A member of the RNA family "Lysine riboswitch aptamer" from Levilactobacillus brevis, 183 nucleotides long. Rfam's curators write: Riboswitches are metabolite binding domains within certain messenger RNAs that serve as precision sensors for their corresponding targets. Allosteric rearrangement of mRNA structure is mediated by ligand binding, and this results in modulation of gene expression. This family includes riboswitches that sense lysine in a number of genes involved in lysine metabolism, including lysC. Pairs were carried over by alignment from the consensus structure, which is taken from published work.

RNA sequence: UCGAAUAGAAGAGGCGCGACCAACAAGAGUCGCUUUCCGGAGAUGGGUCACAUUGCUGAUGGAAGGUUAAAGGGGCGGUCGCCGAAAUUUACGCAUUUUGACCGGAUGCGUGGGUUGGGUCCUGGUUGAACAAGUCAGGGACUGUCGCAGUCAAAUAAUCGGCUGCGGGGCGCUUUCAACGAU
Number, nucleotide and partner (000 for none) at each position: 001u000002c000003g000004a000005a000006u178007a000008g176009a175010a174011g173012a000013g000014g000015c000016g082017c081018g080019a079020c078021c077022a000023a000024c074025a000026a000027g000028a000029g000030u000031c000032g067033c066034u065035u064036u063037c062038c061039g060040g000041a000042g000043a000044u000045g000046g000047g000048u000049c000050a000051c000052a000053u000054u000055g000056c000057u000058g000059a000060u039061g038062g037063a036064a035065g034066g033067u032068u000069a000070a000071a000072g000073g000074g024075g000076c000077g021078g020079u019080c018081g017082c016083c000084g000085a000086a116087a115088u114089u113090u112091a111092c110093g109094c108095a107096u106097u105098u000099u000100g000101a000102c000103c000104g000105g097106a096107u095108g094109c093110g092111u091112g090113g089114g088115u087116u086117g143118g142119g000120u140121c139122c138123u137124g136125g135126u134127u133128g000129a000130a000131c000132a000133a127134g126135u125136c124137a123138g122139g121140g120141a000142c118143u117144g000145u168146c167147g166148c165149a164150g163151u162152c000153a000154a000155a000156u000157a000158a000159u000160c000161g000162g151163c150164u149165g148166c147167g146168g145169g000170g000171c000172g000173c011174u010175u009176u008177c000178a006179a000180c000181g000182a000183u000